[Rfam]
RNA sequence: GUGACAGAAGAGAGUGAGCACACAUGGUACUUUCUGCCAUGAUCCAUCAUGCUUGAAGCUAUGCGUGCUCACUCUCUGUCUGUCAC
Dot-bracket structure: ((((((((.((((((((((((.(((...................................))).))))))))))))..))))))))

The record is an 86-nucleotide sequence from Tripterygium wilfordii, which matches "mir-156 microRNA precursor family" in Rfam. It scores 84 bits against the family's covariance model. Pairs were carried over by alignment from the consensus structure, which was predicted with PFOLD. This family represents the plant microRNA (miRNA) precursor mir-156.